[Rfam]
A member of the RNA family "Plastid-ycf2 5UTR RNA" from Carnegiea gigantea, 75 nucleotides long.
RNA sequence: GUGCAUCUAGUAGAAAUUGAACUUAUGAAUUCGCCAAUUAUGAGUUGGGCACGUUAACCAUUCAGCCAUGGAUAC
Numbered sequence: 001g002u003g004c005a006u007c008u009a010g011u012a013g014a015a016a017u018u019g020a021a022c023u024u025a026u027g028a029a030u031u032c033g034c035c036a037a038u039u040a041u042g043a044g045u046u047g048g049g050c051a052c053g054u055u056a057a058c059c060a061u062u063c064a065g066c067c068a069u070g071g072a073u074a075c
Base pairs, nucleotide, nucleotide: 003075005073006072007071008070010026011025012024013023040069041068042067044066045065046064047063048062049061

Rfam classes the family as a cis-regulatory element.